[Rfam]
RNA sequence: GGGCAAGAUGGCGGCCGAACAGCUCCAGGCCGCUUGAUUGCACUUCGCCUUCGUCCGGUCACCACGGAUGUACUGGGACCAGCGACAGGGCGAAUUGAUAGGGAAGGCCGGGCUCACGCCUGGCCUUUUUUGUU
Numbered sequence: 001g002g003g004c005a006a007g008a009u010g011g012c013g014g015c016c017g018a019a020c021a022g023c024u025c026c027a028g029g030c031c032g033c034u035u036g037a038u039u040g041c042a043c044u045u046c047g048c049c050u051u052c053g054u055c056c057g058g059u060c061a062c063c064a065c066g067g068a069u070g071u072a073c074u075g076g077g078a079c080c081a082g083c084g085a086c087a088g089g090g091c092g093a094a095u096u097g098a099u100a101g102g103g104a105a106g107g108c109c110g111g112g113c114u115c116a117c118g119c120c121u122g123g124c125c126u127u128u129u130u131u132g133u134u
Base pairs, nucleotide, nucleotide: 002039003038004036005035006034013031014030015029016028044094045093046092047091048090049089050088053083055082059078060077062076063075064074098133099132100131101130102129103128104127105126106125107124108123109122110121111120113118

This 134-nucleotide RNA sequence from Phreatobacter cathodiphilus belongs to the Rfam family "Alphaproteobacterial sRNA ar35". The pairing is the family consensus, mapped onto this sequence. For this family Rfam cites "A survey of sRNA families in alpha-proteobacteria" (del Val et al., RNA Biol, 2012). Rfam classes the family as a small RNA.